RNA sequence: UGGAGAAGGGGAGCACGUGCACAGAGAGAGAUGGAUAUAACUACGAGAGUAAUACAGAGAGAAGAAGAUGAAGAAGUAGCUUCCUAGCCUCUGCACGUGCCCUGCUUCUCCAAC
Numbered sequence: 001u002g003g004a005g006a007a008g009g010g011g012a013g014c015a016c017g018u019g020c021a022c023a024g025a026g027a028g029a030g031a032u033g034g035a036u037a038u039a040a041c042u043a044c045g046a047g048a049g050u051a052a053u054a055c056a057g058a059g060a061g062a063a064g065a066a067g068a069u070g071a072a073g074a075a076g077u078a079g080c081u082u083c084c085u086a087g088c089c090u091c092u093g094c095a096c097g098u099g100c101c102c103u104g105c106u107u108c109u110c111c112a113a114c
Base pairs, nucleotide, nucleotide: 001112002111003110004109005108006107007106008105010103011102013100014099015098016097017096018095019094020093021092023090024089

This 114-nucleotide sequence from Dendrobium catenatum belongs to the Rfam family "MIR164 microRNA precursor family".
On this family, see Reinhart et al., Genes Dev 2002: "MicroRNAs in plants".